[Rfam]
RNA sequence: CGGUGAUGCCUCCUAACCGUUAUCAACGGGGGCACUCGGCCAUGCUGUGGGUUGAAUCGACCUUAGACGCGAGUCGUCAAAAGUGUGGUGCGAGGUGGGGUUAGAUGCCCC
Numbered sequence: 001c002g003g004u005g006a007u008g009c010c011u012c013c014u015a016a017c018c019g020u021u022a023u024c025a026a027c028g029g030g031g032g033c034a035c036u037c038g039g040c041c042a043u044g045c046u047g048u049g050g051g052u053u054g055a056a057u058c059g060a061c062c063u064u065a066g067a068c069g070c071g072a073g074u075c076g077u078c079a080a081a082a083g084u085g086u087g088g089u090g091c092g093a094g095g096u097g098g099g100g101u102u103a104g105a106u107g108c109c110c111c
Stems, first nucleotide, its partner, number of pairs: 001019004007034007035094004039089008049063006066078004097111005
Rfam assigns this 111-nucleotide RNA sequence from Paenibacillus silvestris to the family "epsC RNA". Rfam classes the family as a cis-regulatory element. Pairs were carried over by alignment from the consensus structure, which is taken from published work. The family has 30 seed sequences and 450 matches in Rfam 15.1.